[Rfam]
RNA: Ribosomal protein L20 leader
RNA sequence: UUGUUUAAGCAGAAGCGCCCGCUUCUCACCUGAUCGAUGAACAGUCGGCUGGUUGCGAUGAACGAAGUAUGUAAUUAACUUUGAUCAUAAGGAUGUGGGCCUUUGCGCCUGCAUCCUUUUUAUUAUGC
Numbered sequence: 001u002u003g004u005u006u007a008a009g010c011a012g013a014a015g016c017g018c019c020c021g022c023u024u025c026u027c028a029c030c031u032g033a034u035c036g037a038u039g040a041a042c043a044g045u046c047g048g049c050u051g052g053u054u055g056c057g058a059u060g061a062a063c064g065a066a067g068u069a070u071g072u073a074a075u076u077a078a079c080u081u082u083g084a085u086c087a088u089a090a091g092g093a094u095g096u097g098g099g100c101c102u103u104u105g106c107g108c109c110u111g112c113a114u115c116c117u118u119u120u121u122a123u124u125a126u127g128c
Base pairs, nucleotide, nucleotide: 011026012025013024014023015022016021028053029052030051034048035047036046037045038044092115093114094113095112096111097110098109099108100107